[Rfam]
RNA: Photosynthesis regulatory RNA1
RNA sequence: AAAAAGUUUUCGGGGUUUGGGUUUACCCCAUUGACAGAUUUGCUUGAGUUCUCCUACAUAACUUAGCGCUACCUCGGCUGGACACCGAGGUUUUU
Numbered sequence: 001a002a003a004a005a006g007u008u009u010u011c012g013g014g015g016u017u018u019g020g021g022u023u024u025a026c027c028c029c030a031u032u033g034a035c036a037g038a039u040u041u042g043c044u045u046g047a048g049u050u051c052u053c054c055u056a057c058a059u060a061a062c063u064u065a066g067c068g069c070u071a072c073c074u075c076g077g078c079u080g081g082a083c084a085c086c087g088a089g090g091u092u093u094u095u
Stems, first nucleotide, its partner, number of pairs: 061091001072090006